[Rfam]
RNA sequence: CCGUUUUUGUGUUAUUUGCUGGUUGUUAUAACCAAACCCAGUGAUUGUCAAACUAAACGUAGACCAAAGGCAGCUAAUCACUCCAUAAUGUUUAUUCUACUUAAGCCAGGAAUUGAGCAUUACUAAAUGUAUGCCACAAGC
Dot-bracket structure: .(((((...((....(((((((...............)))))))....))....)))))...........................(((((..((((............))))...)))))....................

The record is a 141-nucleotide sequence from Drosophila kikkawai, which matches "Small nucleolar RNA psi18S-1377" in Rfam. The family has 15 seed sequences and 113 matches in Rfam 15.1. It is annotated as an H/ACA-box small nucleolar RNA. Gene Ontology terms of the family: nucleolus and RNA processing. The match comes from Rfam's covariance-model search (118 bits). Rfam's curators write: psi18S-1377 is a member of the H/ACA class of snoRNA. This family is responsible for guiding the modification of uridines 1377 and 1279 to pseudouridine in Drosophila 18S rRNA.